[Rfam]
RNA sequence: UUGACGAUGAUGAUCGGGCAACCGCGUCAUCUUCAUACCUCCCUGUUGGACUGGCCGAGCCUUGUGCUCGGCCUUUUUU
Numbered sequence: 001u002u003g004a005c006g007a008u009g010a011u012g013a014u015c016g017g018g019c020a021a022c023c024g025c026g027u028c029a030u031c032u033u034c035a036u037a038c039c040u041c042c043c044u045g046u047u048g049g050a051c052u053g054g055c056c057g058a059g060c061c062u063u064g065u066g067c068u069c070g071g072c073c074u075u076u077u078u079u
Stems, first nucleotide, its partner, number of pairs: 008035003012031003053073008

The family of this 79-nucleotide sequence from Aliishimia ponticola is "Singlet oxygen resistance RNA X".
NCBI's taxonomy places the organism under Bacteria, Pseudomonadati, Pseudomonadota, Paracoccaceae, Aliishimia.
SorX (RSs2461)like SorY is a singlet oxygen induced sRNA that counteracts oxidative stress by targeting mRNA for a transporter in Rhodobacter. It also has an impact on resistance against organic hydroperoxides. It targets SD sequence of potA mRNA via an aSD sequence.
By type it is a small RNA.
Rfam 15.1 lists 528 matches to the family in 356 species.
A reference for the family is Peng et al. (2016), "Regulation of a polyamine transporter by the conserved 3' UTR-derived sRNA SorX confers resistance to singlet oxygen and organic hydroperoxides in Rhodobacter sphaeroides", RNA Biol.
The match comes from Rfam's covariance-model search (55 bits).